[Rfam]
RNA sequence: CACAAAAAUUAACUCCGAGCUAAUACGUUCACUCGUUUUAUUGCCUAACCUUAUUGAACUUAAAAUGUAUCACUACAUUUUUCAUCAAAUAAAUAUGGCUUAUUAGCCGUAGCCACUUCACUGUUUGAAGUGUGCUACCAGGGUCACAAUAGAAAUGUUGCUAUUGGCCUCCCACAUUUGGAAAGGUGUUAUGUUACAAGACAA
Numbered sequence: 001c002a003c004a005a006a007a008a009u010u011a012a013c014u015c016c017g018a019g020c021u022a023a024u025a026c027g028u029u030c031a032c033u034c035g036u037u038u039u040a041u042u043g044c045c046u047a048a049c050c051u052u053a054u055u056g057a058a059c060u061u062a063a064a065a066u067g068u069a070u071c072a073c074u075a076c077a078u079u080u081u082u083c084a085u086c087a088a089a090u091a092a093a094u095a096u097g098g099c100u101u102a103u104u105a106g107c108c109g110u111a112g113c114c115a116c117u118u119c120a121c122u123g124u125u126u127g128a129a130g131u132g133u134g135c136u137a138c139c140a141g142g143g144u145c146a147c148a149a150u151a152g153a154a155a156u157g158u159u160g161c162u163a164u165u166g167g168c169c170u171c172c173c174a175c176a177u178u179u180g181g182a183a184a185g186g187u188g189u190u191a192u193g194u195u196a197c198a199a200g201a202c203a204a
Base pairs, nucleotide, nucleotide: 006195011190012189013188015186016185019107020106021105022104023103024102025101027099028098029097035094036093037092038091109138110137111136112135113134141170142169143168144167145166146165147160148159149158150157151156171181172180